Overview: Shown here is an 83-nucleotide sequence from Papaver somniferum, a member of the family "Small nucleolar RNA Z199". Rfam describes the family as follows. snoZ199 is a C/D box small nucleolar RNA, which acts as a methylation guide RNA for sites on 18S and 25S rRNA. Rice snoZ199 is reported to be homologous to Arabidopsis snoR13. Lineage of the source: Eukaryota > Streptophytina > Ranunculales > Papaveroideae > Papaver. The family has 17 seed sequences and 953 matches in Rfam 15.1. Rfam classes the family as a C/D-box small nucleolar RNA. Gene Ontology terms of the family: nucleolus and RNA processing.
[Rfam]
RNA sequence: GACACAGAAAGAAAAGAUAACUGCAACAAUAUGAAUUGGAAUUAAGAUUCCGUGAUUCUUAGUAUUUAAGUCUCCGAUGGUUC
Numbered sequence: 001g002a003c004a005c006a007g008a009a010a011g012a013a014a015a016g017a018u019a020a021c022u023g024c025a026a027c028a029a030u031a032u033g034a035a036u037u038g039g040a041a042u043u044a045a046g047a048u049u050c051c052g053u054g055a056u057u058c059u060u061a062g063u064a065u066u067u068a069a070g071u072c073u074c075c076g077a078u079g080g081u082u083c
Base pairs, nucleotide, nucleotide: 002081003079004078038051039050040049041048042047